[Rfam]
RNA sequence: CGAGUUGGUCGGGCGGCCGCGGAGAAAUUCGAGGAAAGUCCGGACUUCACAGAGCAGGGUGAUUGCUAACGGCAAUCCGAGGUGACUCGCGGGACAGUGCCACAGAAAUCAGACCGCCAGAAAUGGUAAGGGUGAAACGGUGCGGUAAGAGCGCACCAGCAUCCCGGGUGACCGGGAUGGCUAGGCAAACCCCACCCGAAGCAAGGCCAAGAGGUCGCUACGGCGACUGCGCAGGCGGGUUGCUCGCCCAUGCCUGCGGGUAGGCCGCUUGAGGCACCCGGCGACGGUGUGUCCAGAUGGAUGGUCGCCGCUGCACCACCGGUGCAGAACAGAAUCCGGCUUACAGACCAACUCGUUCG
Number, nucleotide and partner (000 for none) at each position: 001c355002g354003a353004g352005u351006u350007g349008g348009u347010c346011g344012g309013g308014c307015g306016g305017c304018c303019g000020c031021g030022g029023a028024g000025a000026a000027a000028u023029u022030c021031g020032a000033g000034g000035a000036a342037a341038g340039u000040c339041c338042g337043g336044a335045c201046u200047u199048c198049a000050c000051a000052g245053a244054g243055c242056a000057g197058g196059g195060u194061g193062a076063u075064u074065g073066c072067u000068a000069a000070c000071g000072g066073c065074a064075a063076u062077c091078c089079g088080a087081g086082g000083u000084g000085a000086c081087u080088c079089g078090c000091g077092g192093g191094a000095c000096a000097g190098u189099g186100c185101c184102a000103c000104a000105g000106a000107a000108a000109u000110c000111a000112g000113a000114c131115c130116g127117c126118c125119a124120g000121a000122a000123a000124u119125g118126g117127u116128a000129a000130g115131g114132g000133u000134g000135a000136a000137a000138c000139g157140g156141u155142g154143c153144g152145g000146u000147a000148a000149g000150a000151g000152c144153g143154c142155a141156c140157c139158a000159g181160c179161a178162u177163c176164c175165c174166g173167g172168g000169u000170g000171a000172c167173c166174g165175g164176g163177a162178u161179g160180g000181c159182u000183a000184g101185g100186c099187a000188a000189a098190c097191c093192c092193c061194a060195c059196c058197c057198g048199a047200a046201g045202c000203a000204a000205g266206g265207c264208c263209a000210a000211g000212a000213g000214g257215u256216c000217g254218c000219u252220a000221c000222g000223g000224c000225g000226a000227c000228u000229g000230c000231g000232c000233a000234g000235g000236c000237g249238g248239g247240u246241u000242g055243c054244u053245c052246g240247c239248c238249c237250a000251u000252g219253c000254c217255u000256g215257c214258g000259g000260g000261u000262a000263g208264g207265c206266c205267g000268c000269u000270u000271g000272a000273g293274g292275c291276a290277c289278c287279c286280g285281g000282c000283g000284a000285c280286g279287g278288u000289g277290u276291g275292u274293c273294c000295a000296g000297a000298u000299g000300g000301a000302u000303g018304g017305u016306c015307g014308c013309c012310g000311c000312u000313g000314c000315a000316c000317c000318a000319c000320c000321g000322g000323u000324g000325c000326a000327g000328a000329a000330c000331a000332g000333a000334a000335u044336c043337c042338g041339g040340c038341u037342u036343a000344c011345a000346g010347a009348c008349c007350a006351a005352c004353u003354c002355g001356u000357u000358c000359g000
RNA: Bacterial RNase P class A